A member of the RNA family "Guanidine-I riboswitch aptamer" from Paenibacillus sp. FSL R5-0912, 108 nucleotides long. This family represents a conserved RNA structure found upstream of the ykkC and yxkD genes in Bacillus subtilis and related genes in other bacteria.
RNA sequence: UUAUAUGUUCUCUAGGGUUCCGCAGCUGUUAUGCUGGUCUGGUCCGAGGGAGAACGCACGGAGUGAACCAUAGCCGUGUAUACACGGAGGGAUAAAAGCCCGGGAGGU
Numbered sequence: 001u002u003a004u005a006u007g008u009u010c011u012c013u014a015g016g017g018u019u020c021c022g023c024a025g026c027u028g029u030u031a032u033g034c035u036g037g038u039c040u041g042g043u044c045c046g047a048g049g050g051a052g053a054a055c056g057c058a059c060g061g062a063g064u065g066a067a068c069c070a071u072a073g074c075c076g077u078g079u080a081u082a083c084a085c086g087g088a089g090g091g092a093u094a095a096a097a098g099c100c101c102g103g104g105a106g107g108u
Stems, first nucleotide, its partner, number of pairs: 007055006015045002020042002022039001023036004056081001057078005083103001085106001089101003
Dot-bracket structure: ......((((((..((...(((((((......))))..).)).))....))))))((((((............)))))..).(.[...(((.......))).)..]..